A member of the RNA family "Small nucleolar RNA SNORA63" from Myotis brandtii, 131 nucleotides long. Its family is annotated with RNA processing and nucleolus in the Gene Ontology. On this family, see Mishra and Eliceiri, Proc Natl Acad Sci U S A 1997: "Three small nucleolar RNAs that are involved in ribosomal RNA precursor processing". About the family: E3 belongs to the H/ACA class of snoRNAs and is involved in the processing of eukaryotic pre-rRNA and has regions of complementarity to 18S rRNA. E3 is encoded in introns in the gene for protein synthesis initiation factor 4AII. Rfam 15.1 lists 1,279 matches to the family in 601 species.
[Rfam]
RNA sequence: AGGUUGGGUUAAUUGUUACAAUAUAGCUGUGAAGUGCUAUAUUGUCCCUCCCCCUGCUGAGAGUAAGUGUUUCCUACAAUCUCUGUCUGACUUAUUUCCGUAGUAAGACAGGGACGCUUGGUCUCAAACAU
Numbered sequence: 001a002g003g004u005u006g007g008g009u010u011a012a013u014u015g016u017u018a019c020a021a022u023a024u025a026g027c028u029g030u031g032a033a034g035u036g037c038u039a040u041a042u043u044g045u046c047c048c049u050c051c052c053c054c055u056g057c058u059g060a061g062a063g064u065a066a067g068u069g070u071u072u073c074c075u076a077c078a079a080u081c082u083c084u085g086u087c088u089g090a091c092u093u094a095u096u097u098c099c100g101u102a103g104u105a106a107g108a109c110a111g112g113g114a115c116g117c118u119u120g121g122u123c124u125c126a127a128a129c130a131u
Stems, first nucleotide, its partner, number of pairs: 003057002006054002018045010082112004087107002089104001